Annotation:
The record is a 398-nucleotide sequence from Falsirhodobacter algicola, which matches "Bacterial RNase P class A" in Rfam. Pairs were carried over by alignment from the consensus structure, which is taken from published work. The family's RNA type in Rfam is ribozyme.
RNA sequence: GCGGAUGGCCGGAUGACCGCGGGGGGCUUGCCCCCUCGAGGAAAGUCCGGACUCCAUGAGGCAAGGGCGCCGGAUAACGUCCGGCCGGGGCAACCCGAGGGAAAGCGCCACAGAGAAGAGUCUGCCCCGCAUGUCGGGGUGAUGGUGAAACGGUGGGGUAAGAGCCCACCGCGGUCCUGGCAACAGGAACGGCAAGGCAAGCCCCGCCCGGAGCAAUGCCGAAUAGGGACCUCGCGCCCCGUAAGGUCUGCCUCGGCAGAGACCACGGUGCAGGGACGCCUCAGCCCAGAGGUCCGGGUUGGCAGCUAGAUCCCGCCGGCAACGGCGGGACCAGAUGAAUGGUCAUCGAAGGGGUUUCGGCCCCGGAACAGAAUCCGGCUUACAGGCCAUCCGCGUCA
Numbered sequence: 001g002c003g004g005a006u007g008g009c010c011g012g013a014u015g016a017c018c019g020c021g022g023g024g025g026g027c028u029u030g031c032c033c034c035c036u037c038g039a040g041g042a043a044a045g046u047c048c049g050g051a052c053u054c055c056a057u058g059a060g061g062c063a064a065g066g067g068c069g070c071c072g073g074a075u076a077a078c079g080u081c082c083g084g085c086c087g088g089g090g091c092a093a094c095c096c097g098a099g100g101g102a103a104a105g106c107g108c109c110a111c112a113g114a115g116a117a118g119a120g121u122c123u124g125c126c127c128c129g130c131a132u133g134u135c136g137g138g139g140u141g142a143u144g145g146u147g148a149a150a151c152g153g154u155g156g157g158g159u160a161a162g163a164g165c166c167c168a169c170c171g172c173g174g175u176c177c178u179g180g181c182a183a184c185a186g187g188a189a190c191g192g193c194a195a196g197g198c199a200a201g202c203c204c205c206g207c208c209c210g211g212a213g214c215a216a217u218g219c220c221g222a223a224u225a226g227g228g229a230c231c232u233c234g235c236g237c238c239c240c241g242u243a244a245g246g247u248c249u250g251c252c253u254c255g256g257c258a259g260a261g262a263c264c265a266c267g268g269u270g271c272a273g274g275g276a277c278g279c280c281u282c283a284g285c286c287c288a289g290a291g292g293u294c295c296g297g298g299u300u301g302g303c304a305g306c307u308a309g310a311u312c313c314c315g316c317c318g319g320c321a322a323c324g325g326c327g328g329g330a331c332c333a334g335a336u337g338a339a340u341g342g343u344c345a346u347c348g349a350a351g352g353g354g355u356u357u358c359g360g361c362c363c364c365g366g367a368a369c370a371g372a373a374u375c376c377g378g379c380u381u382a383c384a385g386g387c388c389a390u391c392c393g394c395g396u397c398a
Base pairs, nucleotide, nucleotide: 001394002393003392004391005390006389007388008387009386010385011383012347013346014345015344016343017342018341020038021037022036023035024034025033026032043381044380045379047378048377049376050375051374052213053212054211055210060282061281065209066208067207068206069205070084071083072082073081074080085099086097087096088095089094100204101203105202106201107198108197109196122144124140125139126138127137128136129135152170153169154168155167156166157165171193172191173190175188176187177186178185179184217304218303219302220301227295228294229293230292231291232290273287274286275285311330312329313328314327315326316325317324318323